Shown here is a 264-nucleotide sequence from Chengkuizengella marina, a member of the family "BsrG". The organism belongs to Chengkuizengella, within Bacteria. It is annotated as a small RNA. The family has 6 seed sequences and 614 matches in Rfam 15.1. About the family: bsrE, bsrG and bsrH pair through intermolecular interactions with antisense sRNAs. A search with the family's covariance model found it, with a score of 79 bits.
[Rfam]
RNA sequence: UGCUAUAGACUGGCUCGAUGCAAAGGCGGUUAGCUCACUUCCUGCUUUCAUAAGAAGGAGGUGAUGUCUAUGACAGUAUUUGAAGGAAUCUCUCUUAUGAUUUCAUUCGGACUGCUAAUUGUUGCAGUGCUGUCCUUUCAUAAACGAAAGUAAACCGUCUUUGCCUCCAAGCAUCUAGACGGUUUACACUAAACGAAAUAUGAGCCGACCGCCCUAAUGGGCAAUCUACUUGCACAUUGAUCACAGAUAUUCAUCGUAUCUGUG
Numbered sequence: 001u002g003c004u005a006u007a008g009a010c011u012g013g014c015u016c017g018a019u020g021c022a023a024a025g026g027c028g029g030u031u032a033g034c035u036c037a038c039u040u041c042c043u044g045c046u047u048u049c050a051u052a053a054g055a056a057g058g059a060g061g062u063g064a065u066g067u068c069u070a071u072g073a074c075a076g077u078a079u080u081u082g083a084a085g086g087a088a089u090c091u092c093u094c095u096u097a098u099g100a101u102u103u104c105a106u107u108c109g110g111a112c113u114g115c116u117a118a119u120u121g122u123u124g125c126a127g128u129g130c131u132g133u134c135c136u137u138u139c140a141u142a143a144a145c146g147a148a149a150g151u152a153a154a155c156c157g158u159c160u161u162u163g164c165c166u167c168c169a170a171g172c173a174u175c176u177a178g179a180c181g182g183u184u185u186a187c188a189c190u191a192a193a194c195g196a197a198a199u200a201u202g203a204g205c206c207g208a209c210c211g212c213c214c215u216a217a218u219g220g221g222c223a224a225u226c227u228a229c230u231u232g233c234a235c236a237u238u239g240a241u242c243a244c245a246g247a248u249a250u251u252c253a254u255c256g257u258a259u260c261u262g263u264g
Base pairs, nucleotide, nucleotide: 001234002233003232005230006228007227009225011207012206013205014204015203016202018166020164021163022162023161024160025159028156029155030154031153035064036063037062039060040059041058042057043056072134073133074132075131076130077129078128087098110125176191177190178189211222212221213220242264243263244262245261246260247259248258249257250256
Dot-bracket structure: (((.(((.(.((((((.(.((((((..((((...(((.(((((............))))).))).......(((((((........(..........)...........(..............)..)))))))..................))))..)))))).).........(((..........)))..........))))))...(((......)))..).)).).))).......(((((((((.....)))))))))